[Rfam]
RNA sequence: AUUCCUACUAUUACUGCCCGCGACUAUUCAUAUAAUGAUGGGCAGUAA
Dot-bracket structure: ..........((((((((......................))))))))

The record is a 48-nucleotide RNA from Vibrio proteolyticus, which matches "malK-II RNA" in Rfam. The source organism's lineage runs through Bacteria, Pseudomonadati, Gammaproteobacteria, Vibrionaceae and Vibrio proteolyticus. The sequence is in the family's curated seed alignment.